[Rfam]
RNA sequence: AUAUUUACGCGGGGGGACUUUUAUAAGUUGAGAAGGUAAAACCUGACCCUUAGAACCUGUCAGUUAAUACUGUCGUAGGGAGCACUUACAGAAAGUCU
Number, nucleotide and partner (000 for none) at each position: 001a000002u000003a000004u000005u000006u000007a000008c000009g083010c082011g050012g049013g048014g047015g000016g044017a028018c027019u026020u025021u000022u000023a000024u000025a020026a019027g018028u017029u000030g000031a000032g000033a000034a000035g043036g042037u041038a000039a000040a000041a037042c036043c035044u016045g000046a000047c014048c013049c012050u011051u000052a000053g000054a000055a000056c079057c078058u077059g076060u000061c072062a071063g070064u000065u000066a000067a000068u000069a000070c063071u062072g061073u000074c000075g000076u059077a058078g057079g056080g000081a000082g010083c009084a000085c000086u000087u000088a000089c000090a000091g000092a000093a000094a000095g000096u000097c000098u000
Shown here is a 98-nucleotide RNA from Anaeromicropila populeti, a member of the family "TPP riboswitch aptamer (THI element)". Vitamin B(1) in its active form thiamin pyrophosphate (TPP) is an essential coenzyme that is synthesised by coupling of pyrimidine and thiazole moieties in bacteria. The family's consensus secondary structure is taken from published work. A search with the family's covariance model found it, with a score of 57 bits. The organism belongs to Anaeromicropila, within Bacteria.